[Rfam]
RNA sequence: CUGACCGUGGUUCGAGACCAUCCCACGUAAAAAAACUAAGGAGCG
Numbered sequence: 001c002u003g004a005c006c007g008u009g010g011u012u013c014g015a016g017a018c019c020a021u022c023c024c025a026c027g028u029a030a031a032a033a034a035a036c037u038a039a040g041g042a043g044c045g
Stems, first nucleotide, its partner, number of pairs: 006027005016037001
PreQ1 (pre queuosine) riboswitch aptamer: a 45-nucleotide RNA sequence from Candidatus Kurthia intestinigallinarum. This family is a bacterial riboswitch that binds to the metabolite preQ1, an intermediate in the biosynthesis of the modified nucleoside queuosine from GTP. One example of this riboswitch is located in the leader of the Bacillus subtilis ykvJKLM (queCDEF) operon which encodes four genes necessary for queuosine production. PreQ1 binding to the riboswitch aptamer is thought to induce premature transcription termination within the leader to down-regulate expression of these genes. Its family is annotated with queuosine biosynthetic process in the Gene Ontology. The family has 43 seed sequences and 873 matches in Rfam 15.1. Pairs were carried over by alignment from the consensus structure.